[Rfam]
RNA sequence: GGGGUGUGCCUUUCAGGCAUCCUCUCCUAAAAACUUUCAGGCUGGUCUUCGGACCGGCCUUUUUUUUGUCGCAU
Numbered sequence: 001g002g003g004g005u006g007u008g009c010c011u012u013u014c015a016g017g018c019a020u021c022c023u024c025u026c027c028u029a030a031a032a033a034c035u036u037u038c039a040g041g042c043u044g045g046u047c048u049u050c051g052g053a054c055c056g057g058c059c060u061u062u063u064u065u066u067u068g069u070c071g072c073a074u
Stems, first nucleotide, its partner, number of pairs: 008018004039060009

This 74-nucleotide sequence from Sphingobium sp. TCM1 belongs to the Rfam family "Makes More Granules Regulator RNA (mmgR)". For this family Rfam cites "Evidence for a second class of S-adenosylmethionine riboswitches and other regulatory RNA motifs in alpha-proteobacteria" (Corbino et al., Genome Biol, 2005).